Shown here is a 73-nucleotide sequence from Acrocarpospora pleiomorpha, a member of the family "tRNA".
It scores 58 bits against the family's covariance model.
Rfam classes the family as a transfer RNA.

[Rfam]
RNA sequence: GGCUCCGUCGUCUAGUGGCCCAGGACGCCGCCCUCUCAAGGCGGUAGCGGCGGUUCGAAUCCGCUCGGGGCUA
Numbered sequence: 001g002g003c004u005c006c007g008u009c010g011u012c013u014a015g016u017g018g019c020c021c022a023g024g025a026c027g028c029c030g031c032c033c034u035c036u037c038a039a040g041g042c043g044g045u046a047g048c049g050g051c052g053g054u055u056c057g058a059a060u061c062c063g064c065u066c067g068g069g070g071c072u073a
Stems, first nucleotide, its partner, number of pairs: 001072007010026004028044005049065005